The record is a 96-nucleotide RNA sequence from Gossypium mustelinum, which matches "Plastid-rps12 3UTR RNA" in Rfam. The organism belongs to Gossypium, within Eukaryota. On this family, see Richter et al., Plant Commun 2023: "Retrograde signaling in plants: A critical review focusing on the GUN pathway and beyond". It scores 80 bits against the family's covariance model. Pairs were carried over by alignment from the consensus structure, which was predicted with LocARNA. Plastid rpl20 is a non-coding RNA (ncRNA) recognised in plastids. It was found in the three prime untranslated region (3UTR) of rps12 gene, its 3UTR location sugest a role in transcript maduration.
RNA sequence: GGUUUUUAUUGAUGCAAAUCCAAUCUUGGAAUUUAAAAUGAGAAAAAAUUACUUAGUGGUAGCAAAUGCUUAUCCAUUAAGCGGGGAAAAUCCUAU
Dot-bracket structure: ........(((.........)))............................((((..(((((.......)))))..).....)))...........
Numbered sequence: 001g002g003u004u005u006u007u008a009u010u011g012a013u014g015c016a017a018a019u020c021c022a023a024u025c026u027u028g029g030a031a032u033u034u035a036a037a038a039u040g041a042g043a044a045a046a047a048a049u050u051a052c053u054u055a056g057u058g059g060u061a062g063c064a065a066a067u068g069c070u071u072a073u074c075c076a077u078u079a080a081g082c083g084g085g086g087a088a089a090a091u092c093c094u095a096u
Stems, first nucleotide, its partner, number of pairs: 009023003052085003055077001058074005